Rfam assigns this 36-nucleotide sequence from Abyssalbus ytuae to the family "DUF805b RNA". A search with the family's covariance model found it, with a score of 46 bits. Its Rfam clan is "DUF805 clan". The family's RNA type in Rfam is cis-regulatory element. Lineage of the source: Bacteria > Bacteroidota > Flavobacteriales > Flavobacteriaceae > Abyssalbus. The base pairs follow the family's consensus structure, which is taken from published work.
RNA sequence: AACGGGGAAUCCGAAAACCGUGGAAAAGAGUAGGAU
Dot-bracket structure: .((((....[[[.....))))...........]]].